The record is a 57-nucleotide RNA sequence from Yimella sp. RIT 621, which matches "msiK RNA" in Rfam. The match comes from Rfam's covariance-model search (58 bits). The family has 120 seed sequences and 1,374 matches in Rfam 15.1. The source organism's lineage runs through Bacteria, Bacillati, Actinomycetes, Dermacoccaceae and Yimella. The family's consensus secondary structure is taken from published work. It is annotated as a cis-regulatory element.

RNA sequence: CACAGACACCUUUACAACGGAUCGUCCGGCACGUUCCUGCCGGUGAAGGAGCACACC
Numbered sequence: 001c002a003c004a005g006a007c008a009c010c011u012u013u014a015c016a017a018c019g020g021a022u023c024g025u026c027c028g029g030c031a032c033g034u035u036c037c038u039g040c041c042g043g044u045g046a047a048g049g050a051g052c053a054c055a056c057c
Stems, first nucleotide, its partner, number of pairs: 009049006026043006
Dot-bracket structure: ........((((((...........((((((......))))))))))))........